[Rfam]
RNA: Small nucleolar RNA Z278
Organism: Anisodus acutangulus
RNA sequence: GCUUAUGAUGAUAUAAUCCAAUUAAAUGAGGUGUAGUGGAUCCAAGUCCCUGCUUUGCAGGGUGAACCUCUUGGUGAAGCUAUUACAAAUGAUUAUAUUGGAUUUUUCUGAGGU
Number, nucleotide and partner (000 for none) at each position: 001g114002c113003u112004u000005a000006u000007g000008a000009u000010g000011a000012u000013a000014u000015a000016a000017u000018c000019c000020a000021a000022u000023u000024a000025a000026a000027u000028g000029a000030g000031g000032u000033g000034u000035a000036g000037u000038g000039g000040a000041u000042c000043c000044a000045a000046g000047u000048c062049c061050c060051u059052g058053c000054u000055u000056u000057g000058c052059a051060g050061g049062g048063u000064g000065a000066a000067c000068c000069u000070c000071u000072u000073g000074g000075u000076g000077a000078a000079g000080c000081u000082a000083u000084u000085a000086c000087a000088a000089a000090u000091g000092a000093u000094u000095a000096u000097a000098u000099u000100g000101g000102a000103u000104u000105u000106u000107u000108c000109u000110g000111a000112g003113g002114u001